[Rfam]
RNA sequence: AGCCUCACUUCCCAUGAGAAUGGGCACCGUCGGUCCCGGGGUCCAGAAAUUCUUCAUGGGGCUAACCUGAGACACAGAUCAUGCUUCCAUCUCAGUAAAUGUCUUGCAACCGUGACAGCGAGACCUGCAAUUUUU
Dot-bracket structure: .(((.((.............(((((.(...........).)))))...........)).)))............(((..........(((.....................)))..........)))........
RNA: Small nucleolar RNA SNORA1
Organism: Puma concolor